[Rfam]
RNA: Small nucleolar RNA SNORA33
Organism: Jaculus jaculus
RNA sequence: AAGCCAGCCAAUUGGUCUGCUUAUAUGAAUGUGCUUCUGCAAAUAUGCAUAUAGAGCAGGCAAUAGUGAUGCCAUAAUGCCAUGUUAUGAGCCUUAAGGACAGUUGAGGUCGAUAAGGUCCCUGAAAAUGGCUACAAUA
Dot-bracket structure: ..(((.(........(.(((..................))).).............).))).................((((........((((((..(((.......)))..)))))).........)))).......